[Rfam]
RNA: Lacto-usp RNA
Organism: Lactobacillus sp. LL6
RNA sequence: GAUCAAACUAUAAGACGUGGGAGUUAGUGAAUAACUACCGAAUCGGAAUACUGGCAUUUUUGUCCAGGAUCCAUAUUCGCUGCGACAUUAACUC
Number, nucleotide and partner (000 for none) at each position: 001g000002a000003u000004c000005a000006a000007a000008c000009u000010a000011u000012a000013a000014g000015a000016c000017g000018u000019g000020g000021g000022a093023g092024u091025u090026a089027g088028u087029g086030a000031a000032u000033a000034a000035c000036u000037a000038c000039c079040g078041a077042a076043u075044c000045g072046g071047a070048a000049u000050a000051c067052u066053g065054g064055c000056a000057u000058u000059u000060u000061u000062g000063u000064c054065c053066a052067g051068g000069a000070u047071c046072c045073a000074u000075a043076u042077u041078c040079g039080c000081u000082g000083c000084g000085a000086c029087a028088u027089u026090a025091a024092c023093u022094c000